[Rfam]
Rfam assigns this 88-nucleotide RNA sequence from Metabacillus litoralis to the family "Glycine riboswitch aptamer". Taxonomically the source falls in Metabacillus (Bacteria, Bacillati, Bacillota, Bacillaceae).

RNA sequence: AUGAGAAUAAGGGGAGAGACUAUAUGUAUAUAGCGCCGAAGGAGCAAACAACUGUGAAUCUCUCAGGCAAAAAGACUCUUAUUUGACG
Numbered sequence: 001a002u003g004a005g006a007a008u009a010a011g012g013g014g015a016g017a018g019a020c021u022a023u024a025u026g027u028a029u030a031u032a033g034c035g036c037c038g039a040a041g042g043a044g045c046a047a048a049c050a051a052c053u054g055u056g057a058a059u060c061u062c063u064c065a066g067g068c069a070a071a072a073a074g075a076c077u078c079u080u081a082u083u084u085g086a087c088g
Stems, first nucleotide, its partner, number of pairs: 006083008020033004035068003038064002042062003048055002
Dot-bracket structure: .....((((((((......((((......)))).(((((..(((...((....))....))))).))).......)))))))).....